This 129-nucleotide sequence from Myiagra hebetior belongs to the Rfam family "U11 spliceosomal RNA". Its Rfam clan is "U1 clan".
[Rfam]
RNA sequence: AAAAAGGGCUUCUGCCGUGUGUGGCACGGGGGGGCUGUGCGCCACCUCCGCGGAAUCGACAUCAAGAGAUUUCGGAAGCACAAUUUUUGUAUUAGAGGGCCGCCGGUAACCGUUUGUUCCGGCACCCCG
Numbered sequence: 001a002a003a004a005a006g007g008g009c010u011u012c013u014g015c016c017g018u019g020u021g022u023g024g025c026a027c028g029g030g031g032g033g034g035c036u037g038u039g040c041g042c043c044a045c046c047u048c049c050g051c052g053g054a055a056u057c058g059a060c061a062u063c064a065a066g067a068g069a070u071u072u073c074g075g076a077a078g079c080a081c082a083a084u085u086u087u088u089g090u091a092u093u094a095g096a097g098g099g100c101c102g103c104c105g106g107u108a109a110c111c112g113u114u115u116g117u118u119c120c121g122g123c124a125c126c127c128c129g
Base pairs, nucleotide, nucleotide: 008079009078010077011076012075013026014025015024016023017022027050028049029048030047031046032045034043051074052073053072054071055070056069057068097127098126099125102123103122104121105120106119108118109117110116

A search with the family's covariance model found it, with a score of 110 bits.